[Rfam]
RNA sequence: GUCAGCACAAACCGGAACCUUACUCGCUACACAAGGGGUGUUGAUGUCGGGGGAAACCCUCCCGUUUCGAUGCGGGAUAGAGCGAAAGACAAUGACCGGAAAACGACUAAAGCGCCCCAGCGGGCGCUUUAGUUUU
Numbered sequence: 001g002u003c004a005g006c007a008c009a010a011a012c013c014g015g016a017a018c019c020u021u022a023c024u025c026g027c028u029a030c031a032c033a034a035g036g037g038g039u040g041u042u043g044a045u046g047u048c049g050g051g052g053g054a055a056a057c058c059c060u061c062c063c064g065u066u067u068c069g070a071u072g073c074g075g076g077a078u079a080g081a082g083c084g085a086a087a088g089a090c091a092a093u094g095a096c097c098g099g100a101a102a103a104c105g106a107c108u109a110a111a112g113c114g115c116c117c118c119a120g121c122g123g124g125c126g127c128u129u130u131a132g133u134u135u136u
Base pairs, nucleotide, nucleotide: 002044003043004042005041006040007039008038014019027035028034046090047089048088050059051058052057060077061076062075063074064073065072105134106133107132108131109130110129111128112127113126114125115124116123
Dot-bracket structure: .(((((((.....(....).......((.....))..))))))).(((.(((....)))((((((......))))))..........)))..............((((((((((((......))))))))))))..